[Rfam]
RNA sequence: AAUAAGUGCAGCCGUGGAUAUCCGUGUUCAGUUUGACCGUUUGUCUUAUUUGAAAAAAUUGUGAAAAAAAUAAAAAAAAUUAGUCACACAAAAGUGCUAUUCAUGUUUUAUCAUCUAAUAGCAAUAAAAAUACUAAUCAUAAAAAAAAUUAAAUAAAACGAACGGUCAAACGUUGAACAUGAAUAGCGUGAAACUGCACUUAUU
Numbered sequence: 001a002a003u004a005a006g007u008g009c010a011g012c013c014g015u016g017g018a019u020a021u022c023c024g025u026g027u028u029c030a031g032u033u034u035g036a037c038c039g040u041u042u043g044u045c046u047u048a049u050u051u052g053a054a055a056a057a058a059u060u061g062u063g064a065a066a067a068a069a070a071u072a073a074a075a076a077a078a079a080u081u082a083g084u085c086a087c088a089c090a091a092a093a094g095u096g097c098u099a100u101u102c103a104u105g106u107u108u109u110a111u112c113a114u115c116u117a118a119u120a121g122c123a124a125u126a127a128a129a130a131u132a133c134u135a136a137u138c139a140u141a142a143a144a145a146a147a148a149u150u151a152a153a154u155a156a157a158a159c160g161a162a163c164g165g166u167c168a169a170a171c172g173u174u175g176a177a178c179a180u181g182a183a184u185a186g187c188g189u190g191a192a193a194c195u196g197c198a199c200u201u202a203u204u
Stems, first nucleotide, its partner, number of pairs: 027177004031171014046156004
The record is a 204-nucleotide RNA sequence from Oryza sativa, which matches "MIR812 microRNA precursor family" in Rfam.